[Rfam]
RNA sequence: CCUUUCCCCACAGGAGUGACACUAAGAACACAUGAUGUCAUUGCAAUAUACAUAUAAAAAGUGCAUCGACAUGUUGUAUUGUACAAAUGCCCGAUGCACGUACUUUUGUUGGUGGACUACUCUUGUCUGCAAUCCAUGUGUUCUCAGGUCACCCCUUUGGAGCACCC
Numbered sequence: 001c002c003u004u005u006c007c008c009c010a011c012a013g014g015a016g017u018g019a020c021a022c023u024a025a026g027a028a029c030a031c032a033u034g035a036u037g038u039c040a041u042u043g044c045a046a047u048a049u050a051c052a053u054a055u056a057a058a059a060a061g062u063g064c065a066u067c068g069a070c071a072u073g074u075u076g077u078a079u080u081g082u083a084c085a086a087a088u089g090c091c092c093g094a095u096g097c098a099c100g101u102a103c104u105u106u107u108g109u110u111g112g113u114g115g116a117c118u119a120c121u122c123u124u125g126u127c128u129g130c131a132a133u134c135c136a137u138g139u140g141u142u143c144u145c146a147g148g149u150c151a152c153c154c155c156u157u158u159g160g161a162g163c164a165c166c167c
Stems, first nucleotide, its partner, number of pairs: 008160001012156003016152004025144009